[Rfam]
RNA sequence: ACCGGGGUAGCCGAAAACCGGAUAGAGUAGGCA
Numbered sequence: 001a002c003c004g005g006g007g008u009a010g011c012c013g014a015a016a017a018c019c020g021g022a023u024a025g026a027g028u029a030g031g032c033a
Base pairs, nucleotide, nucleotide: 002021003020004019005018010032011031012030
DUF805b RNA: a 33-nucleotide RNA.
By type it is a cis-regulatory element.
Clan: DUF805 clan.